The family of this 96-nucleotide RNA from Pelagibacterium halotolerans is "Glycine riboswitch aptamer".
Taxonomically the source falls in Pelagibacterium halotolerans (Bacteria, Pseudomonadota, Alphaproteobacteria, Hyphomicrobiales).
A search with the family's covariance model found it, with a score of 62 bits.
Its family is annotated with glycine biosynthetic process in the Gene Ontology.
RNA sequence: CGGCCAUCAGCGGGAGAGACCCUGGCCGUAAAGGCCGGGGCGCCGAAGGAGCAACCGCCCCGGAAACUCUCAGGCACAAGGGACCGCUGAGCCUGU
Numbered sequence: 001c002g003g004c005c006a007u008c009a010g011c012g013g014g015a016g017a018g019a020c021c022c023u024g025g026c027c028g029u030a031a032a033g034g035c036c037g038g039g040g041c042g043c044c045g046a047a048g049g050a051g052c053a054a055c056c057g058c059c060c061c062g063g064a065a066a067c068u069c070u071c072a073g074g075c076a077c078a079a080g081g082g083a084c085c086g087c088u089g090a091g092c093c094u095g096u
Base pairs, nucleotide, nucleotide: 007090008089009088010087011086012085013084020040021039022038023037024036025035042075043074044073045071046070049069050068051067055063056062